[Rfam]
RNA sequence: ACCGCGCCUAGCUCGACGGGGCGAAAGCGGAGCACCCUACUCCGUUGGCGCGGCUCCCGCCAAGGGU
Dot-bracket structure: .(((((((..((((....))))....(((((..[[[[[..))))).))))))).........]]]]]
The family of this 67-nucleotide sequence from Burkholderia ambifaria is "int-alpA RNA". The family has 167 seed sequences and 577 matches in Rfam 15.1. Rfam's curators write: Acidobacteria (1 example), Planctomycetes (1 example), Proteobacteria. The organism belongs to Burkholderia ambifaria, within Bacteria. The family's consensus secondary structure is taken from published work.